[Rfam]
RNA sequence: AUAAAAAGCUAGGGGAGCUUUAUUAAACCGAAGCUGAGAAAGAAGUGGAAACUUCUGACCCUAAUACCUGAACUGGGUAAUUCCAGCGUAGGGAAGCAAAAUCUGUUAUUA
Number, nucleotide and partner (000 for none) at each position: 001a000002u000003a000004a000005a000006a000007a000008g097009c096010u095011a062012g061013g060014g059015g000016a000017g034018c033019u032020u031021u030022a000023u000024u000025a000026a000027a000028c000029c000030g021031a020032a019033g018034c017035u000036g000037a000038g000039a000040a000041a056042g055043a054044a053045g052046u000047g000048g000049a000050a000051a000052c045053u044054u043055c042056u041057g000058a000059c014060c013061c012062u011063a000064a000065u000066a000067c092068c091069u090070g089071a000072a000073c086074u085075g084076g083077g000078u000079a000080a000081u000082u000083c076084c075085a074086g073087c000088g000089u070090a069091g068092g067093g000094a000095a010096g009097c008098a000099a000100a000101a000102u000103c000104u000105g000106u000107u000108a000109u000110u000111a000
Shown here is a 111-nucleotide RNA sequence from Candidatus Syntrophocurvum alkaliphilum, a member of the family "TPP riboswitch aptamer (THI element)". It scores 70 bits against the family's covariance model.